[Rfam]
RNA sequence: CGUUCAGAGAUUGUCACUGUCAUUACCCACAUAGUUGGAUAUGGGAAUACAAUUGUUGA
Numbered sequence: 001c002g003u004u005c006a007g008a009g010a011u012u013g014u015c016a017c018u019g020u021c022a023u024u025a026c027c028c029a030c031a032u033a034g035u036u037g038g039a040u041a042u043g044g045g046a047a048u049a050c051a052a053u054u055g056u057u058g059a
Stems, first nucleotide, its partner, number of pairs: 009054006020044004027038003

Rfam assigns this 59-nucleotide sequence to the family "Transposase-1 RNA". The sequence is in the family's curated seed alignment. By type it is a small RNA.